RNA sequence: AUGGAGACAUGGCCUAAAGCCAGAGAGUGUGAGAGACUCAUUAGGCUAUAACUUGAACUGAUUCACAUCUCAUUUU
Numbered sequence: 001a002u003g004g005a006g007a008c009a010u011g012g013c014c015u016a017a018a019g020c021c022a023g024a025g026a027g028u029g030u031g032a033g034a035g036a037c038u039c040a041u042u043a044g045g046c047u048a049u050a051a052c053u054u055g056a057a058c059u060g061a062u063u064c065a066c067a068u069c070u071c072a073u074u075u076u
Stems, first nucleotide, its partner, number of pairs: 004071004010022004029066004
RNA: ctgf/hcs24 CAESAR
Organism: Puma concolor